The family of this 127-nucleotide RNA from Trifolium medium is "U11 spliceosomal RNA". A search with the family's covariance model found it, with a score of 60 bits.
RNA sequence: AAAAAGGGUCAGUUGGCUAAUUAUGCAACGCUCAUCCUUGUUGGUGAGUGUUGUAUGGCUAUUCAGAUAUAUGGCUGACAUAAUUUUUGUAAAAUUAUAGGGUUGGCUUGCUAAACCUGCCCUAAAA
Numbered sequence: 001a002a003a004a005a006g007g008g009u010c011a012g013u014u015g016g017c018u019a020a021u022u023a024u025g026c027a028a029c030g031c032u033c034a035u036c037c038u039u040g041u042u043g044g045u046g047a048g049u050g051u052u053g054u055a056u057g058g059c060u061a062u063u064c065a066g067a068u069a070u071a072u073g074g075c076u077g078a079c080a081u082a083a084u085u086u087u088u089g090u091a092a093a094a095u096u097a098u099a100g101g102g103u104u105g106g107c108u109u110g111c112u113a114a115a116c117c118u119g120c121c122c123u124a125a126a127a
Stems, first nucleotide, its partner, number of pairs: 008079005014028001016026002029050008051074007098124006105117002108114002

The source organism's lineage runs through Eukaryota, Streptophytina, Euphyllophyta, Pentapetalae and Trifolium.